[Rfam]
RNA sequence: AGGUCAUUACCAAGGCUUUUAGAAUGCGGUUUCUCAUUUGCUGUGGACAUGACCUUAAAAAAUGCCCACUAGGUUUGUUCUCUGCUACAUUGGUAGCAUUCAGCCUUGUGGGAACAUCU
Numbered sequence: 001a002g003g004u005c006a007u008u009a010c011c012a013a014g015g016c017u018u019u020u021a022g023a024a025u026g027c028g029g030u031u032u033c034u035c036a037u038u039u040g041c042u043g044u045g046g047a048c049a050u051g052a053c054c055u056u057a058a059a060a061a062a063u064g065c066c067c068a069c070u071a072g073g074u075u076u077g078u079u080c081u082c083u084g085c086u087a088c089a090u091u092g093g094u095a096g097c098a099u100u101c102a103g104c105c106u107u108g109u110g111g112g113a114a115c116a117u118c119u
Stems, first nucleotide, its partner, number of pairs: 003053005010046003026041004065112004072105004083098003